[Rfam]
RNA: Small nucleolar RNA SNORD83
Organism: Megalops atlanticus
RNA sequence: GCCACAUGAUGAACAUAGAUCUGCAUUAGCACUUGUGCAAAGAUGACCAGUUAUCUAUCACCCUUGUCUGAUGGCU
Numbered sequence: 001g002c003c004a005c006a007u008g009a010u011g012a013a014c015a016u017a018g019a020u021c022u023g024c025a026u027u028a029g030c031a032c033u034u035g036u037g038c039a040a041a042g043a044u045g046a047c048c049a050g051u052u053a054u055c056u057a058u059c060a061c062c063c064u065u066g067u068c069u070g071a072u073g074g075c076u
Stems, first nucleotide, its partner, number of pairs: 001075004029038003